Shown here is an 81-nucleotide RNA sequence from Albula goreensis, a member of the family "mir-128 microRNA precursor family". The family's consensus secondary structure was predicted with RNAalifold. The match comes from Rfam's covariance-model search (71 bits).
[Rfam]
RNA sequence: GAGUGGCAGAAAUCGGGACCGGGGUGCUGUCUGAGAGGGCUAUGAUUCUCACAGUGAACCGGUCUCUUUUUCAGUUUCUCA
Dot-bracket structure: .....((.((....(((((((...((((((..(((............)))))))))...)))))))....)).))......
Numbered sequence: 001g002a003g004u005g006g007c008a009g010a011a012a013u014c015g016g017g018a019c020c021g022g023g024g025u026g027c028u029g030u031c032u033g034a035g036a037g038g039g040c041u042a043u044g045a046u047u048c049u050c051a052c053a054g055u056g057a058a059c060c061g062g063u064c065u066c067u068u069u070u071u072c073a074g075u076u077u078c079u080c081a
Stems, first nucleotide, its partner, number of pairs: 006075002009072002015066007025056006033050003